[Rfam]
RNA sequence: AUUGGUGCAGUGAUUAAAAAUCAUUCCUCGUUCUGAAUGCCUAUUGAAUGGCUUGACAGACUCUUUACCCAUAGAAUAUGAGCAUCA
Numbered sequence: 001a002u003u004g005g006u007g008c009a010g011u012g013a014u015u016a017a018a019a020a021u022c023a024u025u026c027c028u029c030g031u032u033c034u035g036a037a038u039g040c041c042u043a044u045u046g047a048a049u050g051g052c053u054u055g056a057c058a059g060a061c062u063c064u065u066u067a068c069c070c071a072u073a074g075a076a077u078a079u080g081a082g083c084a085u086c087a
Base pairs, nucleotide, nucleotide: 003087004086006084007083
Dot-bracket structure: ..((.((...........................................................................)).))

Description: Small nucleolar RNA snoR8a: an 87-nucleotide sequence from Rhynchospora breviuscula. The organism belongs to Rhynchospora, within Eukaryota. Rfam classes the family as a C/D-box small nucleolar RNA. On this family, see Brown et al., RNA 2001: "Multiple snoRNA gene clusters from Arabidopsis". Rfam links the family to the GO terms nucleolus and RNA processing. The family has 7 seed sequences and 956 matches in Rfam 15.1.